[Rfam]
RNA sequence: GAAUUCGUCUAAGUGGCUUGUGACCAUGUUAUUAAGAUUCAUAUCACAGCCACUUAGAUGAGCUUUG
Numbered sequence: 001g002a003a004u005u006c007g008u009c010u011a012a013g014u015g016g017c018u019u020g021u022g023a024c025c026a027u028g029u030u031a032u033u034a035a036g037a038u039u040c041a042u043a044u045c046a047c048a049g050c051c052a053c054u055u056a057g058a059u060g061a062g063c064u065u066u067g
Stems, first nucleotide, its partner, number of pairs: 005061014020047004027043003

Rfam assigns this 67-nucleotide sequence from Apolygus lucorum to the family "mir-2 microRNA precursor family".
NCBI's taxonomy places the organism under Eukaryota, Opisthokonta, Arthropoda, Allotriocarida, Apolygus.
Rfam links the family to the GO terms RISC complex and miRNA-mediated post-transcriptional gene silencing.
A search with the family's covariance model found it, with a score of 56 bits.
The literature on the family includes a 2001 paper in Science by Lee and Ambros, "An extensive class of small RNAs in Caenorhabditis elegans".